[Rfam]
RNA sequence: AUAGUGUCCUUGGGGUGCCACAAUUGGCUGGCUGAGAUAAAAGACCAUAAUCUUUUGACCCAUGAACUUGCCCUGGGUAAUUCCAGCGAAAGGAAGGCUGUAUGAAAUUAU
Numbered sequence: 001a002u003a004g005u006g007u008c009c010u011u012g013g014g015g016u017g018c019c020a021c022a023a024u025u026g027g028c029u030g031g032c033u034g035a036g037a038u039a040a041a042a043g044a045c046c047a048u049a050a051u052c053u054u055u056u057g058a059c060c061c062a063u064g065a066a067c068u069u070g071c072c073c074u075g076g077g078u079a080a081u082u083c084c085a086g087c088g089a090a091a092g093g094a095a096g097g098c099u100g101u102a103u104g105a106a107a108u109u110a111u
Base pairs, nucleotide, nucleotide: 006099008097009096010095011062012061013060014059017032018031019030020029040055041054042053043052067092068091069090073086074085075084076083
RNA: TPP riboswitch aptamer (THI element)
Organism: Clostridium sp. 'deep sea'